This 82-nucleotide RNA sequence from Polynucleobacter victoriensis belongs to the Rfam family "SucA RNA motif". A search with the family's covariance model found it, with a score of 78 bits. By type it is a cis-regulatory element. On this family, see Weinberg et al., Nucleic Acids Res 2007: "Identification of 22 candidate structured RNAs in bacteria using the CMfinder comparative genomics pipeline". Taxonomically the source falls in Polynucleobacter (Bacteria, Betaproteobacteria, Burkholderiales, Burkholderiaceae). The base pairs follow the family's consensus structure, which is taken from published work.
RNA sequence: UCGCAAUCCGCUAACCGGUCAAGCCGUGUCGCGGAAGGUUUAAACCCACUACAAAUUCGGGAUACCCGAUGAAAGGUGAGCA
Numbered sequence: 001u002c003g004c005a006a007u008c009c010g011c012u013a014a015c016c017g018g019u020c021a022a023g024c025c026g027u028g029u030c031g032c033g034g035a036a037g038g039u040u041u042a043a044a045c046c047c048a049c050u051a052c053a054a055a056u057u058c059g060g061g062a063u064a065c066c067c068g069a070u071g072a073a074a075g076g077u078g079a080g081c082a
Stems, first nucleotide, its partner, number of pairs: 003081002007035005016026004037046003047078004057069005